[Rfam]
RNA sequence: ACGUUCAGGUAAUCGCUGCAGCUUUCGGCUGUAGAGGAAAGUCCAUGCUCGCACGGGCUGAGAUGUCCGUAGUGUUCGUGCCUGGCGAAAAAAUAAGCCAGGGCAGCAAGUUGUUUGCUGACGGCUGGGAAAAUGCCUAAGUCCUUUAUGGAUAUGGUAUGAAUACCUUUAAAAGUGCCACAGUGACGGAGCCUUUCCGGAAACGGAAAGGGUGGAACGAGGUAAACCCCACGAGCGAGAAACCCAAAUUAUGGUAGGGGAGCUUUCUUCCUUGGAAAAAAUGAACGAGGGAGAAGGACAGAAGCUUAUGCAUCUGUAGAUAGAUGAUUACCGCCGAAGUACGAGAUGGAUAAUCGCUUGCAGUACUGAGGAACAAAACAUGGCUUAUAGGA
Numbered sequence: 001a002c003g004u005u006c007a008g009g010u011a012a013u014c015g016c017u018g019c020a021g022c023u024u025u026c027g028g029c030u031g032u033a034g035a036g037g038a039a040a041g042u043c044c045a046u047g048c049u050c051g052c053a054c055g056g057g058c059u060g061a062g063a064u065g066u067c068c069g070u071a072g073u074g075u076u077c078g079u080g081c082c083u084g085g086c087g088a089a090a091a092a093a094u095a096a097g098c099c100a101g102g103g104c105a106g107c108a109a110g111u112u113g114u115u116u117g118c119u120g121a122c123g124g125c126u127g128g129g130a131a132a133a134u135g136c137c138u139a140a141g142u143c144c145u146u147u148a149u150g151g152a153u154a155u156g157g158u159a160u161g162a163a164u165a166c167c168u169u170u171a172a173a174a175g176u177g178c179c180a181c182a183g184u185g186a187c188g189g190a191g192c193c194u195u196u197c198c199g200g201a202a203a204c205g206g207a208a209a210g211g212g213u214g215g216a217a218c219g220a221g222g223u224a225a226a227c228c229c230c231a232c233g234a235g236c237g238a239g240a241a242a243c244c245c246a247a248a249u250u251a252u253g254g255u256a257g258g259g260g261a262g263c264u265u266u267c268u269u270c271c272u273u274g275g276a277a278a279a280a281a282u283g284a285a286c287g288a289g290g291g292a293g294a295a296g297g298a299c300a301g302a303a304g305c306u307u308a309u310g311c312a313u314c315u316g317u318a319g320a321u322a323g324a325u326g327a328u329u330a331c332c333g334c335c336g337a338a339g340u341a342c343g344a345g346a347u348g349g350a351u352a353a354u355c356g357c358u359u360g361c362a363g364u365a366c367u368g369a370g371g372a373a374c375a376a377a378a379c380a381u382g383g384c385u386u387a388u389a390g391g392a
Stems, first nucleotide, its partner, number of pairs: 004392003007388001008332007016034006039386003043383005048239005053070006076234005081102006103122001104120006123229002127168003134159004141153003175227002177223003192211008243259003263297009298317005334371002338367005
RNA: Bacterial RNase P class B
Organism: Bacillus sp. V5-8f